[Rfam]
RNA sequence: UUGCGUUAAGGAUGGAAGUGGAAAUCCUUUUUAGGCGCCAUUUUUAGGCGUCUAAAAAGAUUGAGAGCGUACAGCCUGACCUUGU
Numbered sequence: 001u002u003g004c005g006u007u008a009a010g011g012a013u014g015g016a017a018g019u020g021g022a023a024a025u026c027c028u029u030u031u032u033a034g035g036c037g038c039c040a041u042u043u044u045u046a047g048g049c050g051u052c053u054a055a056a057a058a059g060a061u062u063g064a065g066a067g068c069g070u071a072c073a074g075c076c077u078g079a080c081c082u083u084g085u
Base pairs, nucleotide, nucleotide: 009077010076011075013073014072018068019067023062024061025060026059029057030056031055032054033053034052035051036050037049038048039047